[Rfam]
RNA sequence: UUCUUAUCCUGAGAGGUGGAGGGACUGGCCCUGUGAAGCCCGACAACCAGCAAUUUAUUGCCCGGUGUUAAAUCCUGCAGAUUUUAUUCUGAAAGAUAAGAG
Numbered sequence: 001u002u003c004u005u006a007u008c009c010u011g012a013g014a015g016g017u018g019g020a021g022g023g024a025c026u027g028g029c030c031c032u033g034u035g036a037a038g039c040c041c042g043a044c045a046a047c048c049a050g051c052a053a054u055u056u057a058u059u060g061c062c063c064g065g066u067g068u069u070a071a072a073u074c075c076u077g078c079a080g081a082u083u084u085u086a087u088u089c090u091g092a093a094a095g096a097u098a099a100g101a102g
Stems, first nucleotide, its partner, number of pairs: 001102008013041001015040003021031003025077001027075002042069004047065002050061003073094001078091004